Nucleotides: 066
Stems, first nucleotide, its partner, number of pairs: 001066002004063001006062001007059010019047001021045007
Number, partner (000 for none) and nucleotide at each position: 001066c002065g003000a004063g005000c006062g007059u008058g009057c010056a011055u012054u013053g014052u015051a016050g017000u018000u019047g020000c021045a022044u023043u024042g025041c026040a027039u028000g029000u030000u031000a032000u033000g034000a035000g036000u037000c038000a039027a040026u041025g042024c043023a044022a045021u046000a047019c048000u049000u050016c051015u052014a053013c054012a055011g056010u057009g058008c059007a060000a061000c062006u063004c064000c065002u066001g
The record is a 66-nucleotide RNA sequence, which matches "mir-33 microRNA precursor family" in Rfam. The match comes from Rfam's covariance-model search (67 bits).